[Rfam]
RNA sequence: GAACUCGCCGCAACGGUAAUUCAGCUUAGUACGAGAGGAACCGCUGAUUCAGAUAAUUGGUUUUUGCGGUUGUCCGACCGGGCAGUGCCGCGACGCUACCAUCUGCUGGAUAAUGGCUGAACGCCUCUAAGUCAGAAUCCAUGCCGGAACGCGGCGAUACCUCCCGCACGCUGUAGGCGGAUAAGAAUAGGCCCCGGCCUCGCAUCCUAGCAGGCGAUUCCCCCCACCGGGCUAGAAGUGCCCGGUGGCGUUUCGCGUAUUGUAAUUUGGGCACGCGCGGGAUCAAAUCCUUUGCAGACGACUUAGCUGUGCGAAAGGGUCCUGUAAGCAGUAGAGUAGCCUUGUUGUUACGAUCUGCUGAGGGUAAGCCCUCCUUCGCCUCGAUUUCC
Numbered sequence: 001g002a003a004c005u006c007g008c009c010g011c012a013a014c015g016g017u018a019a020u021u022c023a024g025c026u027u028a029g030u031a032c033g034a035g036a037g038g039a040a041c042c043g044c045u046g047a048u049u050c051a052g053a054u055a056a057u058u059g060g061u062u063u064u065u066g067c068g069g070u071u072g073u074c075c076g077a078c079c080g081g082g083c084a085g086u087g088c089c090g091c092g093a094c095g096c097u098a099c100c101a102u103c104u105g106c107u108g109g110a111u112a113a114u115g116g117c118u119g120a121a122c123g124c125c126u127c128u129a130a131g132u133c134a135g136a137a138u139c140c141a142u143g144c145c146g147g148a149a150c151g152c153g154g155c156g157a158u159a160c161c162u163c164c165c166g167c168a169c170g171c172u173g174u175a176g177g178c179g180g181a182u183a184a185g186a187a188u189a190g191g192c193c194c195c196g197g198c199c200u201c202g203c204a205u206c207c208u209a210g211c212a213g214g215c216g217a218u219u220c221c222c223c224c225c226a227c228c229g230g231g232c233u234a235g236a237a238g239u240g241c242c243c244g245g246u247g248g249c250g251u252u253u254c255g256c257g258u259a260u261u262g263u264a265a266u267u268u269g270g271g272c273a274c275g276c277g278c279g280g281g282a283u284c285a286a287a288u289c290c291u292u293u294g295c296a297g298a299c300g301a302c303u304u305a306g307c308u309g310u311g312c313g314a315a316a317g318g319g320u321c322c323u324g325u326a327a328g329c330a331g332u333a334g335a336g337u338a339g340c341c342u343u344g345u346u347g348u349u350a351c352g353a354u355c356u357g358c359u360g361a362g363g364g365u366a367a368g369c370c371c372u373c374c375u376u377c378g379c380c381u382c383g384a385u386u387u388c389c
Base pairs, nucleotide, nucleotide: 005157006156007155008154009153010152011151014146015145016144017143019049021047022046023045024044025043050105051104052103053102054101058098059097060096065092066091067090068089069088070085071084072083073082074081075080107141108140109139114134115133116132117131118130163281164280165279166278167277169275285387286386287385288384289383290306291305294302311379312378313377314376315375317371318370319369321364322363328358329357330356331355333354336351337350338349339348340347

Shown here is a 389-nucleotide part of an RNA from Brassica oleracea, a member of the family "Eukaryotic large subunit ribosomal RNA". A search with the family's covariance model found it, with a score of 3301 bits. The source organism's lineage runs through Eukaryota, Tracheophyta, Magnoliopsida, Brassica and Brassica oleracea. Pairs were carried over by alignment from the consensus structure, which is taken from published work.